[Rfam]
RNA sequence: GCUUUCUGAUUUGCCUGGAGGCUGAGAAACUCGGAUAGUGUGUGUUGUCAUCAGCUUCGUCUCUUAUUUACGGUGAGAUGGGAGUUAAAUAACAUCACUAUAUUA
Numbered sequence: 001g002c003u004u005u006c007u008g009a010u011u012u013g014c015c016u017g018g019a020g021g022c023u024g025a026g027a028a029a030c031u032c033g034g035a036u037a038g039u040g041u042g043u044g045u046u047g048u049c050a051u052c053a054g055c056u057u058c059g060u061c062u063c064u065u066a067u068u069u070a071c072g073g074u075g076a077g078a079u080g081g082g083a084g085u086u087a088a089a090u091a092a093c094a095u096c097a098c099u100a101u102a103u104u105a
Stems, first nucleotide, its partner, number of pairs: 042098003046094002053086006060078004
Small nucleolar RNA snoR97: a 105-nucleotide RNA from Panicum virgatum. Lineage of the source: Eukaryota > Euphyllophyta > Liliopsida > Poaceae > Panicum sect. Hiantes. By type it is an H/ACA-box small nucleolar RNA. The literature on the family includes a 2002 paper in Curr Biol by Marker et al., "Experimental RNomics: identification of 140 candidates for small non-messenger RNAs in the plant Arabidopsis thaliana".